Shown here is an 85-nucleotide RNA sequence from Jeotgalibacillus sp. R-1-5s-1, a member of the family "pan motif".
The organism belongs to Jeotgalibacillus, within Bacteria.
Rfam classes the family as a cis-regulatory element.

RNA sequence: UGGGCAGUAUCAUUGUGAACUGCACCUUUGCCUAUAGCUGAAAACAAAAAAAUCUGCCUUGAUCCAUUGUGACAGGGACAGAGGA
Numbered sequence: 001u002g003g004g005c006a007g008u009a010u011c012a013u014u015g016u017g018a019a020c021u022g023c024a025c026c027u028u029u030g031c032c033u034a035u036a037g038c039u040g041a042a043a044a045c046a047a048a049a050a051a052a053u054c055u056g057c058c059u060u061g062a063u064c065c066a067u068u069g070u071g072a073c074a075g076g077g078a079c080a081g082a083g084g085a
Base pairs, nucleotide, nucleotide: 002026003025004023005022006021007020008019010018011017054081055080056079057077058076059075060074061073063072064071